[Rfam]
RNA sequence: UUAAUCCUCCAAGACCAUUCUCAAACACUUGUCUUUUUCAAGACCUCAACCACCAACUACUACCAUCAACAUGUCUCCCUGCUCUUGCAACUGCUGCUCCGGCAACUGUAGCUCCUGCUCCUGCUCUUCCUGCAGCGUAAGUACUCCAUCACA
Numbered sequence: 001u002u003a004a005u006c007c008u009c010c011a012a013g014a015c016c017a018u019u020c021u022c023a024a025a026c027a028c029u030u031g032u033c034u035u036u037u038u039c040a041a042g043a044c045c046u047c048a049a050c051c052a053c054c055a056a057c058u059a060c061u062a063c064c065a066u067c068a069a070c071a072u073g074u075c076u077c078c079c080u081g082c083u084c085u086u087g088c089a090a091c092u093g094c095u096g097c098u099c100c101g102g103c104a105a106c107u108g109u110a111g112c113u114c115c116u117g118c119u120c121c122u123g124c125u126c127u128u129c130c131u132g133c134a135g136c137g138u139a140a141g142u143a144c145u146c147c148a149u150c151a152c153a
Stems, first nucleotide, its partner, number of pairs: 080104004087097003108133003117124002